This 175-nucleotide RNA sequence from Weissella oryzae belongs to the Rfam family "Lysine riboswitch aptamer". From the family's description: Riboswitches are metabolite binding domains within certain messenger RNAs that serve as precision sensors for their corresponding targets.
RNA sequence: UUAAUUAAUAGAGGUUGCAGUCAACAAUAGUAAAAUCAUUGAACCUACCAGGGUACUGAGGUGAUUUGAAAGGGGCGACUGCCGAAGGCUUGUUCUUGGUAGGGACGAGGCUGGGCCAGGGUUGAAAAAGCUUUGGACUGUCGUUGUCAUUAUGCAACGGGGUGCUAUUGGAUGG
Numbered sequence: 001u002u003a004a005u006u007a008a009u010a011g012a013g014g015u016u017g018c019a020g021u022c023a024a025c026a027a028u029a030g031u032a033a034a035a036u037c038a039u040u041g042a043a044c045c046u047a048c049c050a051g052g053g054u055a056c057u058g059a060g061g062u063g064a065u066u067u068g069a070a071a072g073g074g075g076c077g078a079c080u081g082c083c084g085a086a087g088g089c090u091u092g093u094u095c096u097u098g099g100u101a102g103g104g105a106c107g108a109g110g111c112u113g114g115g116c117c118a119g120g121g122u123u124g125a126a127a128a129a130g131c132u133u134u135g136g137a138c139u140g141u142c143g144u145u146g147u148c149a150u151u152a153u154g155c156a157a158c159g160g161g162g163u164g165c166u167a168u169u170g171g172a173u174g175g
Stems, first nucleotide, its partner, number of pairs: 006170006017082006025074001033067008086112002089109007113139002116136008141160007
It scores 106 bits against the family's covariance model. Pairs were carried over by alignment from the consensus structure, which is taken from published work.